[Rfam]
RNA sequence: AACCCUUGGAGAGAGCCGUUAUAUUAAAAAGAGAUAAAACGGCCGCCGAAGGCGCAAAAAGAGCGGUUAAUUUUUCCGUUUUUUCAAACGCUCAGGCAAAAGGACAGGGGCAACAAG
Numbered sequence: 001a002a003c004c005c006u007u008g009g010a011g012a013g014a015g016c017c018g019u020u021a022u023a024u025u026a027a028a029a030a031g032a033g034a035u036a037a038a039a040c041g042g043c044c045g046c047c048g049a050a051g052g053c054g055c056a057a058a059a060a061g062a063g064c065g066g067u068u069a070a071u072u073u074u075u076c077c078g079u080u081u082u083u084u085c086a087a088a089c090g091c092u093c094a095g096g097c098a099a100a101a102g103g104a105c106a107g108g109g110g111c112a113a114c115a116a117g
Stems, first nucleotide, its partner, number of pairs: 003110006015043006045097003048093002052091003058084009